Rfam assigns this 145-nucleotide RNA sequence from Nocardioides mesophilus to the family "SAM riboswitch aptamer (S box leader)".
NCBI's taxonomy places the organism under Bacteria, Actinomycetota, Propionibacteriales, Nocardioidaceae, Nocardioides.
From the family's description: The SAM riboswitch is found upstream of a number of genes which code for proteins involved in methionine or cysteine biosynthesis in Gram-positive bacteria.
The match comes from Rfam's covariance-model search (71 bits).
Clan: SAM clan.
RNA sequence: UGCUCAUCAAGAGGGGCAGAGGGACACGGCCCGACGAAGCCCCGGCAACCCGCCGCGACGACCUCCGCGAGAGACGCGGACGUCGUGCGGCCACGGUGCUAAUUCCGUCCCGUUGCCGAGAGCCGGCGAGCGGGGAAGAUGAGAA
Numbered sequence: 001u002g003c004u005c006a007u008c009a010a011g012a013g014g015g016g017c018a019g020a021g022g023g024a025c026a027c028g029g030c031c032c033g034a035c036g037a038a039g040c041c042c043c044g045g046c047a048a049c050c051c052g053c054c055g056c057g058a059c060g061a062c063c064u065c066c067g068c069g070a071g072a073g074a075c076g077c078g079g080a081c082g083u084c085g086u087g088c089g090g091c092c093a094c095g096g097u098g099c100u101a102a103u104u105c106c107g108u109c110c111c112g113u114u115g116c117c118g119a120g121a122g123c124c125g126g127c128g129a130g131c132g133g134g135g136a137a138g139a140u141g142a143g144a145a
Base pairs, nucleotide, nucleotide: 001145003143004142005141006140007139008138013043014042015041016040017039021032022031023030026108027107028106029105044100045099046098047097049096050095052091053090054089055088056087057086104137109134110133111132112131113130114129